[Rfam]
RNA sequence: ACAGUUCCUCGUUAGGUGAGGCUCCUGUAUGAAGAUAUGCUACUGCCCAGAAACGUCCAAAGACGCCAACGGGUCAGCAGGAACGAUCGAGUUAAGGUCGUUUUUAAUGUAGCUGUAACUUUACUAUGUCAUGCAGUGCUAAAGCUCUACGAAGGAGGCGUUUU
Numbered sequence: 001a002c003a004g005u006u007c008c009u010c011g012u013u014a015g016g017u018g019a020g021g022c023u024c025c026u027g028u029a030u031g032a033a034g035a036u037a038u039g040c041u042a043c044u045g046c047c048c049a050g051a052a053a054c055g056u057c058c059a060a061a062g063a064c065g066c067c068a069a070c071g072g073g074u075c076a077g078c079a080g081g082a083a084c085g086a087u088c089g090a091g092u093u094a095a096g097g098u099c100g101u102u103u104u105u106a107a108u109g110u111a112g113c114u115g116u117a118a119c120u121u122u123a124c125u126a127u128g129u130c131a132u133g134c135a136g137u138g139c140u141a142a143a144g145c146u147c148u149a150c151g152a153a154g155g156a157g158g159c160g161u162u163u164u
Stems, first nucleotide, its partner, number of pairs: 005160001007158004011150002013095001015146003020140003025136008039113005045074004054065004080104004086098003115124003
Shown here is a 164-nucleotide RNA sequence from Savagea serpentis, a member of the family "M-box riboswitch aptamer (ykoK leader)".
Gene Ontology terms of the family: response to magnesium ion and regulation of gene expression.
The family has 159 seed sequences and 1,095 matches in Rfam 15.1.